mir-5928 microRNA precursor family: a 75-nucleotide RNA from Haemonchus placei. The match comes from Rfam's covariance-model search (68 bits). NCBI's taxonomy places the organism under Eukaryota, Opisthokonta, Eumetazoa, Rhabditina, Haemonchus.
RNA sequence: GACACGAACUUGGAGUAGAGUAGAUUAGUAGGGUCAGCUAAUACUACUAAUCUACUCUACGUCAAGUUUGUGCCC
Number, nucleotide and partner (000 for none) at each position: 001g074002a000003c072004a071005c070006g069007a068008a067009c066010u000011u064012g063013g062014a000015g060016u059017a058018g057019a056020g055021u054022a053023g052024a000025u050026u049027a048028g047029u046030a045031g000032g000033g042034u041035c000036a000037g000038c000039u000040a000041a034042u033043a000044c000045u030046a029047c028048u027049a026050a025051u000052c023053u022054a021055c020056u019057c018058u017059a016060c015061g000062u013063c012064a011065a000066g009067u008068u007069u006070g005071u004072g003073c000074c001075c000